A member of the RNA family "HIV pol-1 stem loop" from Lentivirus simimdef, 113 nucleotides long.
[Rfam]
RNA sequence: GUAGGGACAGUAUUAGUAGGACCAACACCUGUAAAUAUAAUUGGAAGAAAUAUUUUGACACAAUUGGGUUGUACUCUAGUGUUCCCAAUUAGUUCAAUUGAAACUGUCCCAGU
Numbered sequence: 001g002u003a004g005g006g007a008c009a010g011u012a013u014u015a016g017u018a019g020g021a022c023c024a025a026c027a028c029c030u031g032u033a034a035a036u037a038u039a040a041u042u043g044g045a046a047g048a049a050a051u052a053u054u055u056u057g058a059c060a061c062a063a064u065u066g067g068g069u070u071g072u073a074c075u076c077u078a079g080u081g082u083u084c085c086c087a088a089u090u091a092g093u094u095c096a097a098u099u100g101a102a103a104c105u106g107u108c109c110c111a112g113u
Base pairs, nucleotide, nucleotide: 004110005109006108007107008106009105010104011103013101014100015099016098017097019095020094021093022092031059032058034056035055037053038052039051063090065088067086068085
On this family, see Wang et al., RNA 2008: "Evidence of a novel RNA secondary structure in the coding region of HIV-1 pol gene". The sequence is in the family's curated seed alignment.